[Rfam]
RNA sequence: UGGGGGGGACGGCCCCCCCACUGGCGUUCCAGUCCCGGGACGACCAGG
Numbered sequence: 001u002g003g004g005g006g007g008g009a010c011g012g013c014c015c016c017c018c019c020a021c022u023g024g025c026g027u028u029c030c031a032g033u034c035c036c037g038g039g040a041c042g043a044c045c046a047g048g
Base pairs, nucleotide, nucleotide: 001020002019003018004017005016006015007014008013035048036047038045039044
Source information:
The family of this 48-nucleotide RNA from Camelus dromedarius is "Guanidine-II riboswitch aptamer (mini-ykkC)". The organism belongs to Camelus, within Eukaryota.